[Rfam]
RNA: Plastid-psbA-1 3UTR RNA
RNA sequence: UCGAAGUUACAUCUAUCAAUGGAUAAGACUUCUUUCUGUCUUAGUGUAUACAAGUUCUUUCAAGUAAAGGAGAAAUAACCAAUUUCUUGUUUUCUCAAGAGGAUUCAAAUAUUUAUUUUUCUUGU
Numbered sequence: 001u002c003g004a005a006g007u008u009a010c011a012u013c014u015a016u017c018a019a020u021g022g023a024u025a026a027g028a029c030u031u032c033u034u035u036c037u038g039u040c041u042u043a044g045u046g047u048a049u050a051c052a053a054g055u056u057c058u059u060u061c062a063a064g065u066a067a068a069g070g071a072g073a074a075a076u077a078a079c080c081a082a083u084u085u086c087u088u089g090u091u092u093u094c095u096c097a098a099g100a101g102g103a104u105u106c107a108a109a110u111a112u113u114u115a116u117u118u119u120u121c122u123u124g125u
Stems, first nucleotide, its partner, number of pairs: 008023001010021003066125001068123011081110001084101005